[Rfam]
Notes:
Shown here is a 105-nucleotide RNA from Averrhoa carambola, a member of the family "Plastid-rps12 3UTR RNA". By type it is a cis-regulatory element. The base pairs follow the family's consensus structure, which was predicted with LocARNA. Taxonomically the source falls in Averrhoa (Eukaryota, Streptophytina, rosids, Oxalidales). From the family's description: Plastid rpl20 is a non-coding RNA (ncRNA) recognised in plastids. It was found in the three prime untranslated region (3UTR) of rps12 gene, its 3UTR location sugest a role in transcript maduration. Rfam's curators put it in the seed alignment.
RNA sequence: GGUUUCCUUUGGUGCAAAUUCAAUUACCUAAAUUUUCAAUUUAAGAUGGGAAAAAAUUCCCCAUUGGUAGCAAAUGGUUAUCCACUAAGCAAGGGAAAUCUUAUU
Numbered sequence: 001g002g003u004u005u006c007c008u009u010u011g012g013u014g015c016a017a018a019u020u021c022a023a024u025u026a027c028c029u030a031a032a033u034u035u036u037c038a039a040u041u042u043a044a045g046a047u048g049g050g051a052a053a054a055a056a057u058u059c060c061c062c063a064u065u066g067g068u069a070g071c072a073a074a075u076g077g078u079u080a081u082c083c084a085c086u087a088a089g090c091a092a093g094g095g096a097a098a099u100c101u102u103a104u105u
Stems, first nucleotide, its partner, number of pairs: 009023004059094002064084001066082006